Background: Rfam assigns this 184-nucleotide RNA from Gelria sp. Kuro-4 to the family "Lysine riboswitch aptamer". About the family: Riboswitches are metabolite binding domains within certain messenger RNAs that serve as precision sensors for their corresponding targets.
[Rfam]
RNA sequence: AGGUGGGGUAGAGGCGCGAGGGCCAAGAGUAACCCGCUCGAGCAGGGCAGCGAGGAAGGCGGGGGAAAGGGGCCGUCGCCGAAGCAGGGAAGAGGCGCCGGCUUCCCGGCUGGGCCCAGGCUGAACAAGUCUGGGACUGUCACCGGCGGUUUACCGUGGCUGCCGGUGGAGCGCUAUCUCACGG
Number, nucleotide and partner (000 for none) at each position: 001a000002g000003g000004u000005g000006g179007g178008g177009u176010a175011g174012a000013g000014g000015c000016g079017c078018g077019a076020g000021g074022g073023c072024c071025a000026a000027g000028a000029g000030u000031a000032a000033c063034c062035c061036g060037c059038u058039c000040g000041a000042g000043c000044a000045g000046g000047g000048c000049a000050g000051c000052g000053a000054g000055g000056a000057a000058g038059g037060c036061g035062g034063g033064g000065g000066a000067a000068a000069g000070g000071g024072g023073c022074c021075g000076u019077c018078g017079c016080c000081g000082a000083a111084g110085c109086a000087g107088g106089g105090a104091a103092g102093a000094g000095g000096c000097g000098c000099c000100g000101g000102c092103u091104u090105c089106c088107c087108g000109g085110c084111u083112g138113g137114g000115c135116c134117c133118a132119g131120g130121c129122u128123g000124a000125a000126c000127a000128a122129g121130u120131c119132u118133g117134g116135g115136a000137c113138u112139g000140u169141c168142a167143c166144c165145g164146g163147c162148g161149g160150u159151u000152u000153a000154c000155c000156g000157u000158g000159g150160c149161u148162g147163c146164c145165g144166g143167u142168g141169g140170a000171g000172c000173g000174c011175u010176a009177u008178c007179u006180c000181a000182c000183g000184g000
Lineage of the source: Bacteria > Bacillati > Clostridia > Thermoanaerobacterales > Gelria.
The family has 47 seed sequences and 3,224 matches in Rfam 15.1.